[Rfam]
RNA sequence: CACAUGAUCGGAUCUUCCAUUCGUAUAUCCUCGGCAAUAGGGGCCGGGGGUCUCUACCGGGAACCGCAAAUUCCCGACUACGAAGGAGGUGGAGUUUUCC
Numbered sequence: 001c002a003c004a005u006g007a008u009c010g011g012a013u014c015u016u017c018c019a020u021u022c023g024u025a026u027a028u029c030c031u032c033g034g035c036a037a038u039a040g041g042g043g044c045c046g047g048g049g050g051u052c053u054c055u056a057c058c059g060g061g062a063a064c065c066g067c068a069a070a071u072u073c074c075c076g077a078c079u080a081c082g083a084a085g086g087a088g089g090u091g092g093a094g095u096u097u098u099c100c
Base pairs, nucleotide, nucleotide: 018086020084021083022082023081024080025079029049030048031047032046033045034044035043058076059075060074061073062072063071